[Rfam]
RNA: Actino-pnp RNA
Organism: Rhodococcus jostii
RNA sequence: GUCGGUCUUCGGUAGUGGUCUUCCGGACACGGUCCGGGGGACUUCGAUCGACGGCCGCC
Dot-bracket structure: (.(((((.(((((...((((((((((((...))))))))))))...))))).))))).)